[Rfam]
RNA sequence: GGCUCGCAAGAGCCCAAACAUAGCGGGGCGGAAAGCCUCGCAUUGCUAAACGGAAGACAGAAA
Dot-bracket structure: (((((....)))))........(((((((.....)))))))......................